[Rfam]
The record is a 117-nucleotide RNA, which matches "SAM (S-adenosyl methionine) riboswitch aptamer" in Rfam. The base pairs follow the family's consensus structure, which is taken from published work.
RNA sequence: GGUCAUGAGUGACAGCGAUUAGGCCCCGGCUCGCUGUCCGGCAACCCUCCGUCCGUGGCGGGGUGCCCCGGGUGAAGACCAGGCAGUGCACAGCAAGGUGCUCUGCAAGCGCGGACC
Numbered sequence: 001g002g003u004c005a006u007g008a009g010u011g012a013c014a015g016c017g018a019u020u021a022g023g024c025c026c027c028g029g030c031u032c033g034c035u036g037u038c039c040g041g042c043a044a045c046c047c048u049c050c051g052u053c054c055g056u057g058g059c060g061g062g063g064u065g066c067c068c069c070g071g072g073u074g075a076a077g078a079c080c081a082g083g084c085a086g087u088g089c090a091c092a093g094c095a096a097g098g099u100g101c102u103c104u105g106c107a108a109g110c111g112c113g114g115a116c117c
Base pairs, nucleotide, nucleotide: 001080002079003078004077009039011038012037013036014035015034016033022031023030040067041066042065045063046062047061049058050057083106084105085104086103088101089100090099091098
A search with the family's covariance model found it, with a score of 113 bits. From the family's description: SAM-IV is a mRNA element that regulates gene expression via direct sensing of S-adenosylmethionine (SAM or AdoMet). SAM-IV riboswitches share conserved nucleotide positions with the previously described SAM-I riboswitches sequence analysis and molecular recognition experiments suggest that SAM-I and SAM-IV riboswitches share similar ligand binding sites, but have different scaffolds.